Shown here is a 125-nucleotide sequence from Microcebus murinus, a member of the family "Small nucleolar RNA SNORA14". The source organism's lineage runs through Eukaryota, Teleostomi, Theria, Boreoeutheria and Microcebus. ACA14 is a member of the H/ACA class of snoRNA that guide the sites of modification of uridines to pseudouridines. Its family is annotated with nucleolus and RNA processing in the Gene Ontology.
RNA sequence: UUGCAUGCAUUAGAGCUUUGUUCUAAAUGCUUCCAAGAAAUGAGUGAAUGCUAUAGAAAUUGCAGAGGAGUCCAAAGGGCUGCGCUUCCCCUGUGGCUCAGUCUUAUUUCAUACCUGUGACAUCU
Numbered sequence: 001u002u003g004c005a006u007g008c009a010u011u012a013g014a015g016c017u018u019u020g021u022u023c024u025a026a027a028u029g030c031u032u033c034c035a036a037g038a039a040a041u042g043a044g045u046g047a048a049u050g051c052u053a054u055a056g057a058a059a060u061u062g063c064a065g066a067g068g069a070g071u072c073c074a075a076a077g078g079g080c081u082g083c084g085c086u087u088c089c090c091c092u093g094u095g096g097c098u099c100a101g102u103c104u105u106a107u108u109u110c111a112u113a114c115c116u117g118u119g120a121c122a123u124c125u
Base pairs, nucleotide, nucleotide: 003051004050005049006048008044010043011042012041014031015030016029055125056124057123060120061119062118063117064116065115076105077104078103079102080101081100082099084097085096088093